[Rfam]
RNA sequence: AAAGUUGUCGUCUUCCGCCGCCAGCAGGGACUGGAUGAAUUCCGGAGGGAUGUCCGCGAAACGGAUCGGUGCCCGCCUCAUCUCGCCGAACUCGGCGAUCAGCUUCCCAUCGCUGCUAUACACGCGCAGCGGUAUCUGCAGCUGGAUGCUGCGUAGGGAAUCGACAGACGGAAGACUCGGGCUAAGGUAGAGAUAAGCGCCGCUGAAACUGAGCAACAGCCCACAAAAAACAGCAACGCAAGACCACCAGAAAAACUUCAGCAGGCGUAUCAAGAUUCUUGGAUUUCCAGGCAA
Numbered sequence: 001a002a003a004g005u006u007g008u009c010g011u012c013u014u015c016c017g018c019c020g021c022c023a024g025c026a027g028g029g030a031c032u033g034g035a036u037g038a039a040u041u042c043c044g045g046a047g048g049g050a051u052g053u054c055c056g057c058g059a060a061a062c063g064g065a066u067c068g069g070u071g072c073c074c075g076c077c078u079c080a081u082c083u084c085g086c087c088g089a090a091c092u093c094g095g096c097g098a099u100c101a102g103c104u105u106c107c108c109a110u111c112g113c114u115g116c117u118a119u120a121c122a123c124g125c126g127c128a129g130c131g132g133u134a135u136c137u138g139c140a141g142c143u144g145g146a147u148g149c150u151g152c153g154u155a156g157g158g159a160a161u162c163g164a165c166a167g168a169c170g171g172a173a174g175a176c177u178c179g180g181g182c183u184a185a186g187g188u189a190g191a192g193a194u195a196a197g198c199g200c201c202g203c204u205g206a207a208a209c210u211g212a213g214c215a216a217c218a219g220c221c222c223a224c225a226a227a228a229a230a231c232a233g234c235a236a237c238g239c240a241a242g243a244c245c246a247c248c249a250g251a252a253a254a255a256c257u258u259c260a261g262c263a264g265g266c267g268u269a270u271c272a273a274g275a276u277u278c279u280u281g282g283a284u285u286u287c288c289a290g291g292c293a294a
Stems, first nucleotide, its partner, number of pairs: 011171002014168002017165001019163002025045001027043004047084006057075002061070002086095003103158002105155001107153001108148004115142003119138002122135001125131002176290002179287003183283001186279002197268005202262006213239002